RNA sequence: CUACCGAUGUCGCAAGGCUACGGGAUGCGUUUGGAGAAGUCAGCAGAGGCCAUAGUAGACCAGACCGGUUGAAGGGC
Numbered sequence: 001c002u003a004c005c006g007a008u009g010u011c012g013c014a015a016g017g018c019u020a021c022g023g024g025a026u027g028c029g030u031u032u033g034g035a036g037a038a039g040u041c042a043g044c045a046g047a048g049g050c051c052a053u054a055g056u057a058g059a060c061c062a063g064a065c066c067g068g069u070u071g072a073a074g075g076g077c
Base pairs, nucleotide, nucleotide: 001027004023005022006021009018010017011016040047041046049077050076051075058070059069060068061067
This 77-nucleotide RNA sequence from Desulfosarcina alkanivorans belongs to the Rfam family "Group II catalytic intron D1-D4-1". The family has 237 seed sequences and 2,508 matches in Rfam 15.1. Its family is annotated with Group II intron splicing in the Gene Ontology. A reference for the family is Chu et al. (2001), "Control of branch-site choice by a group II intron", EMBO J. Group II introns are found in rRNA, tRNA and mRNA of organelles in fungi, plants and protists, and also in mRNA in bacteria. The base pairs follow the family's consensus structure. Lineage of the source: Bacteria > Desulfobacteria > Desulfobacterales > Desulfosarcinaceae > Desulfosarcina.